[Rfam]
RNA sequence: GGGCGUACGGUGGAUGCCUUGGCAUGCUGAGCCGAUGAAGGACGUGUGAGGCUGCGUUAAGCCUCGGGGAGUUGCCAACUAAGCGUUGAUCCGAGGAUGUCCGAAUGGGGAAACCUGGCACCAGUUAUGUGGUGUUACCUGCAGGUGAAUCUAUAGCCUGUAUGGGGGUGAACGCGGGGAAGUGAAACAUCUCAGUACCCGCAGGAGAAGAAAACAAUUGUGAUUCCGUUAGUAGUGGCGAGCGAACGCGGAUGAGGCUAAACCAUGUGUGUGUGAUACCUGGCAGGGGUUGCGCAUGUGGGGUUGUGGGGCGCAUCGUAAGUUAUCUGCUAGUGACUUGCUUGAUGUGGUUGUGUCAGCGGAAGCGCCUGGGAUGGUGCACCGGAGAAGGUGAUGAGUCCUGUACGCGAAGACAUAGCUGCGUUGGGUGUAUGUGUUUUUCCCCGAGUAGCAGCGGGCCCGUGAAAUCUGCUGUGAAUCUGCCGGGACCACCCGGUAAGCCUAAAUACUCAGUGUGACCGAUAGUGGAUAGUACCGUGAGGGAAUGGUGAAAAGUACCCCGGGAGGGGAGUGAAAGAGUUCCUGAAACCGUGCGCUUAC
Numbered sequence: 001g002g003g004c005g006u007a008c009g010g011u012g013g014a015u016g017c018c019u020u021g022g023c024a025u026g027c028u029g030a031g032c033c034g035a036u037g038a039a040g041g042a043c044g045u046g047u048g049a050g051g052c053u054g055c056g057u058u059a060a061g062c063c064u065c066g067g068g069g070a071g072u073u074g075c076c077a078a079c080u081a082a083g084c085g086u087u088g089a090u091c092c093g094a095g096g097a098u099g100u101c102c103g104a105a106u107g108g109g110g111a112a113a114c115c116u117g118g119c120a121c122c123a124g125u126u127a128u129g130u131g132g133u134g135u136u137a138c139c140u141g142c143a144g145g146u147g148a149a150u151c152u153a154u155a156g157c158c159u160g161u162a163u164g165g166g167g168g169u170g171a172a173c174g175c176g177g178g179g180a181a182g183u184g185a186a187a188c189a190u191c192u193c194a195g196u197a198c199c200c201g202c203a204g205g206a207g208a209a210g211a212a213a214a215c216a217a218u219u220g221u222g223a224u225u226c227c228g229u230u231a232g233u234a235g236u237g238g239c240g241a242g243c244g245a246a247c248g249c250g251g252a253u254g255a256g257g258c259u260a261a262a263c264c265a266u267g268u269g270u271g272u273g274u275g276a277u278a279c280c281u282g283g284c285a286g287g288g289g290u291u292g293c294g295c296a297u298g299u300g301g302g303g304u305u306g307u308g309g310g311g312c313g314c315a316u317c318g319u320a321a322g323u324u325a326u327c328u329g330c331u332a333g334u335g336a337c338u339u340g341c342u343u344g345a346u347g348u349g350g351u352u353g354u355g356u357c358a359g360c361g362g363a364a365g366c367g368c369c370u371g372g373g374a375u376g377g378u379g380c381a382c383c384g385g386a387g388a389a390g391g392u393g394a395u396g397a398g399u400c401c402u403g404u405a406c407g408c409g410a411a412g413a414c415a416u417a418g419c420u421g422c423g424u425u426g427g428g429u430g431u432a433u434g435u436g437u438u439u440u441u442c443c444c445c446g447a448g449u450a451g452c453a454g455c456g457g458g459c460c461c462g463u464g465a466a467a468u469c470u471g472c473u474g475u476g477a478a479u480c481u482g483c484c485g486g487g488a489c490c491a492c493c494c495g496g497u498a499a500g501c502c503u504a505a506a507u508a509c510u511c512a513g514u515g516u517g518a519c520c521g522a523u524a525g526u527g528g529a530u531a532g533u534a535c536c537g538u539g540a541g542g543g544a545a546u547g548g549u550g551a552a553a554a555g556u557a558c559c560c561c562g563g564g565a566g567g568g569g570a571g572u573g574a575a576a577g578a579g580u581u582c583c584u585g586a587a588a589c590c591g592u593g594c595g596c597u598u599a600c
Stems, first nucleotide, its partner, number of pairs: 001598010016583001017548002021520002023517009032168002040102003043056003062096007071084003107116003117136007138165002140162007173204001174202005184191002214221002224506001225252005235243002255503004263301011308445003312436005345424013359408003365380005383387001389402003451475008482497005535542002558569004
RNA: Bacterial large subunit ribosomal RNA, nucleotides 15 to 614